[Rfam]
RNA sequence: CUUCAACGACCCCAGCCACAACGGCUGGUCGGCCGACCGGUCCUGACCGUAGGUCGCCAGCAGUGCCUGGGCCUC
Numbered sequence: 001c002u003u004c005a006a007c008g009a010c011c012c013c014a015g016c017c018a019c020a021a022c023g024g025c026u027g028g029u030c031g032g033c034c035g036a037c038c039g040g041u042c043c044u045g046a047c048c049g050u051a052g053g054u055c056g057c058c059a060g061c062a063g064u065g066c067c068u069g070g071g072c073c074u075c
Stems, first nucleotide, its partner, number of pairs: 014026004033069001038065002043060003047056001049054001
Dot-bracket structure: .............((((.....))))......(....((...(((.(.(....).).)))...))...)......
ASpks TB sRNA: a 75-nucleotide RNA sequence from Streptomyces pilosus. A search with the family's covariance model found it, with a score of 84 bits. Rfam classes the family as an antisense RNA. The source organism's lineage runs through Bacteria, Actinomycetota, Actinomycetes, Kitasatosporales and Streptomyces.